[Rfam]
Alphaproteobacterial sRNA ar45: a 157-nucleotide RNA sequence from Methylocystis parvus. The family's RNA type in Rfam is small RNA. Lineage of the source: Bacteria > Pseudomonadati > Hyphomicrobiales > Methylocystaceae > Methylocystis. The pairing is the family consensus, mapped onto this sequence. The match comes from Rfam's covariance-model search (61 bits).
RNA sequence: GCCCAAAUCGCACGUGCCUGUGGUCGUGUGUCGGUGGACGGGGAUCCGGACAAGAGGCCGGUCAACCGCCCGAGUAAAACCGGCAGCCGGAGGCGAACCGGCGAACUCCGCCCUCAACGGAGGAUCGCGACUUAAAGCAACGACGGACCGGGCUUUU
Numbered sequence: 001g002c003c004c005a006a007a008u009c010g011c012a013c014g015u016g017c018c019u020g021u022g023g024u025c026g027u028g029u030g031u032c033g034g035u036g037g038a039c040g041g042g043g044a045u046c047c048g049g050a051c052a053a054g055a056g057g058c059c060g061g062u063c064a065a066c067c068g069c070c071c072g073a074g075u076a077a078a079a080c081c082g083g084c085a086g087c088c089g090g091a092g093g094c095g096a097a098c099c100g101g102c103g104a105a106c107u108c109c110g111c112c113c114u115c116a117a118c119g120g121a122g123g124a125u126c127g128c129g130a131c132u133u134a135a136a137g138c139a140a141c142g143a144c145g146g147a148c149c150g151g152g153c154u155u156u157u
Stems, first nucleotide, its partner, number of pairs: 001153004008143003015139003022132005039072003042067002046061004080101004102127003108123002111120002